Rfam assigns this 114-nucleotide RNA sequence from Cellvibrio japonicus to the family "Guanidine-I riboswitch aptamer".
A search with the family's covariance model found it, with a score of 90 bits.
Rfam 15.1 lists 1,509 matches to the family in 1,281 species.
Pairs were carried over by alignment from the consensus structure.
[Rfam]
RNA sequence: GUAAUAGAAAGCUAGGGUUCCGAUUUUCCGGUGGUUGCGCCGGCUAAAAAUGACUGGUCCGAGAGCUUUCGACCUCACAGUGAGGUUACACGGCGGGAUAAAAGCCCGGGAGAC
Numbered sequence: 001g002u003a004a005u006a007g008a009a010a011g012c013u014a015g016g017g018u019u020c021c022g023a024u025u026u027u028c029c030g031g032u033g034g035u036u037g038c039g040c041c042g043g044c045u046a047a048a049a050a051u052g053a054c055u056g057g058u059c060c061g062a063g064a065g066c067u068u069u070c071g072a073c074c075u076c077a078c079a080g081u082g083a084g085g086u087u088a089c090a091c092g093g094c095g096g097g098a099u100a101a102a103a104g105c106c107c108g109g110g111a112g113a114c
Base pairs, nucleotide, nucleotide: 007070008069009068010067011066012065015060016059020057021056022054023051024050025049026048027047071087072086073085074084075083076082077081089109091112095107096106097105